[Rfam]
RNA: Small Cajal body specific RNA 4
Organism: Scyliorhinus torazame
RNA sequence: CCUGGAGGAUGAAGAAAGUGGGACCUGUCCAGUAGUUUGGUUCUGCUGAUACACUCCUCCUAGAGAAACUGGGCUGUGAGGACAGCCCCACUUCGAGUGAAAGCCGGGGUUUCACUGUGCAGCCCGACAAUU
Numbered sequence: 001c002c003u004g005g006a007g008g009a010u011g012a013a014g015a016a017a018g019u020g021g022g023a024c025c026u027g028u029c030c031a032g033u034a035g036u037u038u039g040g041u042u043c044u045g046c047u048g049a050u051a052c053a054c055u056c057c058u059c060c061u062a063g064a065g066a067a068a069c070u071g072g073g074c075u076g077u078g079a080g081g082a083c084a085g086c087c088c089c090a091c092u093u094c095g096a097g098u099g100a101a102a103g104c105c106g107g108g109g110u111u112u113c114a115c116u117g118u119g120c121a122g123c124c125c126g127a128c129a130a131u132u
Base pairs, nucleotide, nucleotide: 002063003062004060005059006058007057008056009055017047018046019045021043022042023041024040025039071125072124073123074122081116084112085110086109087108088107089106094103